The record is a 116-nucleotide RNA sequence from Catenibacillus scindens, which matches "FMN riboswitch aptamer (RFN element)" in Rfam. Lineage of the source: Bacteria > Bacillota > Lachnospirales > Lachnospiraceae > Catenibacillus. The match comes from Rfam's covariance-model search (107 bits).
[Rfam]
RNA sequence: AGCAGUCUUCGGGGCAGGGUGAGAUUCCCGAUCGGCGGUAAAGUCCGCGAGCGCGCAGCGCAUGAUUUGGUGAGAUUCCAAAACCGACAGUAUAGUCUGGAUGAAAGAAGAUGAGC
Numbered sequence: 001a002g003c004a005g006u007c008u009u010c011g012g013g014g015c016a017g018g019g020u021g022a023g024a025u026u027c028c029c030g031a032u033c034g035g036c037g038g039u040a041a042a043g044u045c046c047g048c049g050a051g052c053g054c055g056c057a058g059c060g061c062a063u064g065a066u067u068u069g070g071u072g073a074g075a076u077u078c079c080a081a082a083a084c085c086g087a088c089a090g091u092a093u094a095g096u097c098u099g100g101a102u103g104a105a106a107g108a109a110g111a112u113g114a115g116c
Stems, first nucleotide, its partner, number of pairs: 005112006017029003031096002033086002035048004043084002066082005088099003